[Rfam]
RNA sequence: CCAACCGAAGCGUCUCGCAGGGCGUGCUAUGUGGAGAUGGUGUUUCCGGUAGAGCACUGAUAGGGUGGCGCGGGGAAGAGAUUCCUCACCAUCCAUUCAAACUCCGAACGGAUACACAUCGCAGAAGCAUGGACACGGGUUCGUGUGACGUAAGGUUCACGACCGAGAGGGGUUUAACCCAGACUGGAGUUAAGGUCCCCAAAUUUCUGCUAAGUGUCAAGCCAAAGUGCGUGUCGUCGCCAAGACAGCAGGGAGGUAAGCUCAGAAGUAGCUAUCCUUCAAAAAGUGUGUAACAACUUACCUGCCGAGCGAGGGCGCCACAAAAACGGACGGGGCUAAAGCAGAGUACCGAUACUCCGGACGUGCACCGUGGCAGGUGCACCGUGGUAGGUUGGCGUAGUGAUUGGGACGAAGCAGGGCGGUGACGUCCUGUGGACCGAUUUCUAUUGCAGAU
Numbered sequence: 001c002c003a004a005c006c007g008a009a010g011c012g013u014c015u016c017g018c019a020g021g022g023c024g025u026g027c028u029a030u031g032u033g034g035a036g037a038u039g040g041u042g043u044u045u046c047c048g049g050u051a052g053a054g055c056a057c058u059g060a061u062a063g064g065g066u067g068g069c070g071c072g073g074g075g076a077a078g079a080g081a082u083u084c085c086u087c088a089c090c091a092u093c094c095a096u097u098c099a100a101a102c103u104c105c106g107a108a109c110g111g112a113u114a115c116a117c118a119u120c121g122c123a124g125a126a127g128c129a130u131g132g133a134c135a136c137g138g139g140u141u142c143g144u145g146u147g148a149c150g151u152a153a154g155g156u157u158c159a160c161g162a163c164c165g166a167g168a169g170g171g172g173u174u175u176a177a178c179c180c181a182g183a184c185u186g187g188a189g190u191u192a193a194g195g196u197c198c199c200c201a202a203a204u205u206u207c208u209g210c211u212a213a214g215u216g217u218c219a220a221g222c223c224a225a226a227g228u229g230c231g232u233g234u235c236g237u238c239g240c241c242a243a244g245a246c247a248g249c250a251g252g253g254a255g256g257u258a259a260g261c262u263c264a265g266a267a268g269u270a271g272c273u274a275u276c277c278u279u280c281a282a283a284a285a286g287u288g289u290g291u292a293a294c295a296a297c298u299u300a301c302c303u304g305c306c307g308a309g310c311g312a313g314g315g316c317g318c319c320a321c322a323a324a325a326a327c328g329g330a331c332g333g334g335g336c337u338a339a340a341g342c343a344g345a346g347u348a349c350c351g352a353u354a355c356u357c358c359g360g361a362c363g364u365g366c367a368c369c370g371u372g373g374c375a376g377g378u379g380c381a382c383c384g385u386g387g388u389a390g391g392u393u394g395g396c397g398u399a400g401u402g403a404u405u406g407g408g409a410c411g412a413a414g415c416a417g418g419g420c421g422g423u424g425a426c427g428u429c430c431u432g433u434g435g436a437c438c439g440a441u442u443u444c445u446a447u448u449g450c451a452g453a454u
Stems, first nucleotide, its partner, number of pairs: 001395006011024005026134001027132006036120003040117004045112003052105001053103002059098002063094006072087006138164002141162005147157002169180003184360007194350003203347001205346006227321003231318005237312004248305005254278003259273003279283001284299001288297002361385002364381005396449001398446003402442006414433008